[Rfam]
RNA sequence: AACAGCUAUGAUGGCCAUAGCAGAAGCGCUCACGUCGCGGCACGGGCAGAUCCUGACAAUCUGCAGUGCUGCU
Numbered sequence: 001a002a003c004a005g006c007u008a009u010g011a012u013g014g015c016c017a018u019a020g021c022a023g024a025a026g027c028g029c030u031c032a033c034g035u036c037g038c039g040g041c042a043c044g045g046g047c048a049g050a051u052c053c054u055g056a057c058a059a060u061c062u063g064c065a066g067u068g069c070u071g072c073u
Base pairs, nucleotide, nucleotide: 014041015040016039019073020072021071022070023069025067026038027037028036047063048062049061050060051059
The record is a 73-nucleotide RNA sequence from Alligator mississippiensis, which matches "Mammalian CPEB3 ribozyme" in Rfam. Rfam links the family to the GO term RNA nuclease activity. A search with the family's covariance model found it, with a score of 35 bits. NCBI's taxonomy places the organism under Eukaryota, Teleostomi, Amniota, Sauropsida, Alligator.